[Rfam]
RNA sequence: CUGUCCUGUCCUUCAUUCCACCGGAGUCUGUCUCACACCAACCAGAUUUCAGUGGAGUGAAGCUCAGGAGGCC
Numbered sequence: 001c002u003g004u005c006c007u008g009u010c011c012u013u014c015a016u017u018c019c020a021c022c023g024g025a026g027u028c029u030g031u032c033u034c035a036c037a038c039c040a041a042c043c044a045g046a047u048u049u050c051a052g053u054g055g056a057g058u059g060a061a062g063c064u065c066a067g068g069a070g071g072c073c
Stems, first nucleotide, its partner, number of pairs: 011062006019054003023050004028045003

The record is a 73-nucleotide sequence from Jaculus jaculus, which matches "mir-205 microRNA precursor family" in Rfam.
Its family is annotated with RISC complex and miRNA-mediated post-transcriptional gene silencing in the Gene Ontology.
The match comes from Rfam's covariance-model search (81 bits).
The source organism's lineage runs through Eukaryota, Eumetazoa, Bilateria, Vertebrata and Jaculus.
A reference for the family is Lim et al. (2003), "Vertebrate microRNA genes", Science.
The base pairs follow the family's consensus structure, which was predicted with RNAalifold.